Annotation:
Lysine riboswitch aptamer: a 168-nucleotide sequence from Thomasclavelia cocleata.
RNA sequence: GGAAAAAAUAGAGGUUGCAAGGCAUCAGAGUACUAUAGUGAGUAGGCAUACAUUGAUCUAUAGGAAAGGUAAUCUUUGCCGAUAGAUAAUAGAUGGCAAUUUAUUAUCUAGGUGCUGUAGGAAAUACCUACAGUACUCCUUCAGUAAUGAAGAGGAGCUAUUGACACA
Numbered sequence: 001g002g003a004a005a006a007a008a009u010a011g012a013g014g015u016u017g018c019a020a021g022g023c024a025u026c027a028g029a030g031u032a033c034u035a036u037a038g039u040g041a042g043u044a045g046g047c048a049u050a051c052a053u054u055g056a057u058c059u060a061u062a063g064g065a066a067a068g069g070u071a072a073u074c075u076u077u078g079c080c081g082a083u084a085g086a087u088a089a090u091a092g093a094u095g096g097c098a099a100u101u102u103a104u105u106a107u108c109u110a111g112g113u114g115c116u117g118u119a120g121g122a123a124a125u126a127c128c129u130a131c132a133g134u135a136c137u138c139c140u141u142c143a144g145u146a147a148u149g150a151a152g153a154g155g156a157g158c159u160a161u162u163g164a165c166a167c168a
Stems, first nucleotide, its partner, number of pairs: 007162005017079006025071001033063006040057001083110012111137011139152005

The source organism's lineage runs through Bacteria, Bacillati, Erysipelotrichales, Coprobacillaceae and Thomasclavelia.